A member of the RNA family "Small nucleolar RNA SNORD83" from Eleutherodactylus coqui, 72 nucleotides long.
For this family Rfam cites "Characterisation of the U83 and U84 small nucleolar RNAs: two novel 2'-O-ribose methylation guide RNAs that lack complementarities to ribosomal RNAs" (Jady and Kiss, Nucleic Acids Res, 2000).
Taxonomically the source falls in Eleutherodactylus (Eukaryota, Dipnotetrapodomorpha, Batrachia, Eleutherodactylidae).
The family has 7 seed sequences and 1,393 matches in Rfam 15.1.
Its family is annotated with nucleolus and RNA processing in the Gene Ontology.
RNA sequence: GCCAUAUGAUGUAUGUUGUUUCAUGAACUUCGUGAUGAUUACUCUACAUCUAUCACCCUAUUUCUGAUGGCU
Numbered sequence: 001g002c003c004a005u006a007u008g009a010u011g012u013a014u015g016u017u018g019u020u021u022c023a024u025g026a027a028c029u030u031c032g033u034g035a036u037g038a039u040u041a042c043u044c045u046a047c048a049u050c051u052a053u054c055a056c057c058c059u060a061u062u063u064c065u066g067a068u069g070g071c072u
Stems, first nucleotide, its partner, number of pairs: 001071004027033002

Pairs were carried over by alignment from the consensus structure, which was predicted with PFOLD. The family's RNA type in Rfam is C/D-box small nucleolar RNA.